Notes: L31-Gammaproteobacteria ribosomal protein leader: a 56-nucleotide RNA sequence from Candidatus Sodalis pierantonii. On this family, see Eckert and Weinberg, BMC Microbiol 2020: "Discovery of 20 novel ribosomal leader candidates in bacteria and archaea". Rfam's curators put it in the seed alignment.

RNA sequence: CGCGUGGUGUCUGGUUAUAAAGUAGACCGGAUAGCGACGCGGCCUUACGAAGAGGU
Numbered sequence: 001c002g003c004g005u006g007g008u009g010u011c012u013g014g015u016u017a018u019a020a021a022g023u024a025g026a027c028c029g030g031a032u033a034g035c036g037a038c039g040c041g042g043c044c045u046u047a048c049g050a051a052g053a054g055g056u
Stems, first nucleotide, its partner, number of pairs: 001041005007035002011030006